RNA sequence: UGUAAUUUAUCAGCGCCAGACCGCAUGCCUGUACUGCGGUGACGAGGGAAAGAGUUAUCGAAAAUUCGGCGGAUGCUCUUUCGGUGCCGUUUUUACGGUGUCGUCAGUCUGAUUGUUAAACCCUCUCCGCAAGGGGAGAAACAGAGCUUUCAGACAAGACAAAC
Numbered sequence: 001u002g003u004a005a006u007u008u009a010u011c012a013g014c015g016c017c018a019g020a021c022c023g024c025a026u027g028c029c030u031g032u033a034c035u036g037c038g039g040u041g042a043c044g045a046g047g048g049a050a051a052g053a054g055u056u057a058u059c060g061a062a063a064a065u066u067c068g069g070c071g072g073a074u075g076c077u078c079u080u081u082c083g084g085u086g087c088c089g090u091u092u093u094u095a096c097g098g099u100g101u102c103g104u105c106a107g108u109c110u111g112a113u114u115g116u117u118a119a120a121c122c123c124u125c126u127c128c129g130c131a132a133g134g135g136g137a138g139a140a141a142c143a144g145a146g147c148u149u150u151c152a153g154a155c156a157a158g159a160c161a162a163a164c
Stems, first nucleotide, its partner, number of pairs: 020040006049081005058069004082103008108154005123138006

Rfam assigns this 164-nucleotide sequence from Anaeromassilibacillus sp. An172 to the family "glmS glucosamine-6-phosphate activated ribozyme aptamer". Lineage of the source: Bacteria > Bacillati > Bacillota > Clostridia > Anaeromassilibacillus. The match comes from Rfam's covariance-model search (87 bits). This entry contains a glucosamine-6-phosphate activated ribozyme that is found in the mRNA for GlmS. GlmS is an enzyme that uses fructose-6-phosphate and glutamine to generate glucosamine-6-phosphate. The ribozyme catalyses self cleavage of the glmS mRNA that is thought to regulate GlmS activity.